Rfam assigns this 149-nucleotide RNA from Jatropha curcas to the family "MIR828 microRNA precursor family". On this family, see Rajagopalan et al., Genes Dev 2006: "A diverse and evolutionarily fluid set of microRNAs in Arabidopsis thaliana". Gene Ontology terms of the family: RISC complex and miRNA-mediated post-transcriptional gene silencing.
[Rfam]
RNA sequence: GGAAGGCCUCUUGCUCAAAUGAGUAUUCCACAAUCUCAACAGGGAAAGACAAAGGUUCCCUCUUAAGAUUGUAUCAAAUGAGUAUUCCACCUUCAUUUUCUCAGUACUUUUUUGCAGAAAUGGAUACUCAUUUGGGCAAGAUGCCUUGC
Numbered sequence: 001g002g003a004a005g006g007c008c009u010c011u012u013g014c015u016c017a018a019a020u021g022a023g024u025a026u027u028c029c030a031c032a033a034u035c036u037c038a039a040c041a042g043g044g045a046a047a048g049a050c051a052a053a054g055g056u057u058c059c060c061u062c063u064u065a066a067g068a069u070u071g072u073a074u075c076a077a078a079u080g081a082g083u084a085u086u087c088c089a090c091c092u093u094c095a096u097u098u099u100c101u102c103a104g105u106a107c108u109u110u111u112u113u114g115c116a117g118a119a120a121u122g123g124a125u126a127c128u129c130a131u132u133u134g135g136g137c138a139a140g141a142u143g144c145c146u147u148g149c
Base pairs, nucleotide, nucleotide: 004146005145006144007143010140011139012138013137014136015135016134017133018132019131020130021129022128023127024126025125026124027123029122030121